Shown here is a 180-nucleotide RNA sequence from Bacillus oleivorans, a member of the family "Lysine riboswitch aptamer". From the family's description: Riboswitches are metabolite binding domains within certain messenger RNAs that serve as precision sensors for their corresponding targets. Allosteric rearrangement of mRNA structure is mediated by ligand binding, and this results in modulation of gene expression. This family includes riboswitches that sense lysine in a number of genes involved in lysine metabolism, including lysC. A search with the family's covariance model found it, with a score of 130 bits.
RNA sequence: AGUGAUGAUAGAGGUGCGAAUUUCAAAAGUAAAAACGCCUGAGAGGGAUGAGCCUCUGUGAUGGGUUUUGAAAGGGACGUUCGCCGAAGUGGAAAAUGGCUCAUACCGUUUUCCGCUGGUUCUGUGUUGAACAAAUACAGGACUGUCAAGAUCAGUAAAUCUUGGAGUGCUAUCUCACAU
Dot-bracket structure: ......(((((....((((((.((.......(((((.((.......................)))))))......)).))))))...((((((((((((......))))))))))))(((((((((((.....))))))))))).(((((((......)))))))....)))))......
Numbered sequence: 001a002g003u004g005a006u007g008a009u010a011g012a013g014g015u016g017c018g019a020a021u022u023u024c025a026a027a028a029g030u031a032a033a034a035a036c037g038c039c040u041g042a043g044a045g046g047g048a049u050g051a052g053c054c055u056c057u058g059u060g061a062u063g064g065g066u067u068u069u070g071a072a073a074g075g076g077a078c079g080u081u082c083g084c085c086g087a088a089g090u091g092g093a094a095a096a097u098g099g100c101u102c103a104u105a106c107c108g109u110u111u112u113c114c115g116c117u118g119g120u121u122c123u124g125u126g127u128u129g130a131a132c133a134a135a136u137a138c139a140g141g142a143c144u145g146u147c148a149a150g151a152u153c154a155g156u157a158a159a160u161c162u163u164g165g166a167g168u169g170c171u172a173u174c175u176c177a178c179a180u
Stems, first nucleotide, its partner, number of pairs: 007174005016084006023077002032069005038064002088117012118144011146165007